[Rfam]
RNA sequence: GGCGAUAAACGGCCAUCGCAAUAAGCCUUUCGGACCCGGGGGCGGUACCCGGCGCCUCCACCAAAGGGCAGCGGCGACAGCGUGCAUGCGCGGCGGCUGCCCUUCGGCGGGGGCGAAAUAGGAUCGACGAGGGUGUAAAGGGUGGACUUUUGCUCGGCAUGGUUCCGCCGUUAUCGGGCCGAACAUAUAGUUGCCAACGACAACUAUGCUCCGGUUGCCCAGGCUGCGUAA
Number, nucleotide and partner (000 for none) at each position: 001g154002g153003c152004g151005a150006u000007a000008a000009a000010c000011g000012g000013c000014c144015a143016u142017c141018g000019c000020a000021a000022u000023a000024a000025g000026c133027c132028u131029u000030u130031c129032g128033g000034a000035c000036c052037c051038g050039g049040g048041g000042g000043c000044g000045g000046u000047a000048c040049c039050c038051g037052g036053c115054g114055c113056c112057u111058c110059c109060a000061c000062c000063a000064a000065a000066g000067g000068g000069c000070a000071g000072c000073g000074g000075c000076g000077a000078c000079a000080g000081c000082g000083u000084g000085c000086a000087u000088g000089c000090g000091c000092g000093g000094c000095g000096g000097c000098u000099g000100c000101c000102c000103u000104u000105c000106g000107g000108c000109g059110g058111g057112g056113g055114c054115g053116a000117a000118a000119u000120a000121g000122g000123a000124u000125c000126g000127a000128c032129g031130a030131g028132g027133g026134u000135g000136u000137a000138a000139a000140g000141g017142g016143u015144g014145g000146a000147c000148u000149u000150u005151u004152g003153c002154u001155c170156g169157g168158c167159a000160u000161g000162g000163u000164u000165c000166c000167g158168c157169c156170g155171u000172u000173a000174u000175c000176g000177g000178g000179c000180c000181g000182a000183a000184c000185a000186u000187a000188u000189a000190g000191u000192u000193g000194c000195c000196a000197a000198c000199g000200a000201c000202a000203a000204c000205u000206a000207u000208g000209c000210u000211c000212c000213g000214g000215u000216u000217g000218c000219c000220c000221a000222g000223g000224c000225u000226g000227c000228g000229u000230a000231a000
Shown here is a 231-nucleotide sequence from Chelatococcus asaccharovorans, a member of the family "permuted transfer-messenger RNA". Rfam's curators write: Bacterial tmRNA, also known as 10Sa RNA or SsrA, is named for its dual tRNA and mRNA-like properties. Its role is to liberate the mRNA from a stalled ribosome. Pairs were carried over by alignment from the consensus structure, which is taken from published work. On this family, see Laslett et al., Nucleic Acids Res 2002: "BRUCE: a program for the detection of transfer-messenger RNA genes in nucleotide sequences". The family's RNA type in Rfam is non-coding RNA gene.